RNA sequence: AUGAGCCACUUGAGGGGAAGGUGAAAACCUUCGACGAAGGUUCGAGCCGAGCGUAGCGAGUCAACGACGCGCAGCGGCGGCCCGAAGGGUGAGGAAUGAAGUGACGAAUAAUCCUUCCCCCACCACCA
Numbered sequence: 001a002u003g004a005g006c007c008a009c010u011u012g013a014g015g016g017g018a019a020g021g022u023g024a025a026a027a028c029c030u031u032c033g034a035c036g037a038a039g040g041u042u043c044g045a046g047c048c049g050a051g052c053g054u055a056g057c058g059a060g061u062c063a064a065c066g067a068c069g070c071g072c073a074g075c076g077g078c079g080g081c082c083c084g085a086a087g088g089g090u091g092a093g094g095a096a097u098g099a100a101g102u103g104a105c106g107a108a109u110a111a112u113c114c115u116u117c118c119c120c121c122a123c124c125a126c127c128a
Stems, first nucleotide, its partner, number of pairs: 015119007022111001032091002035089001041086004048058002065079002068076003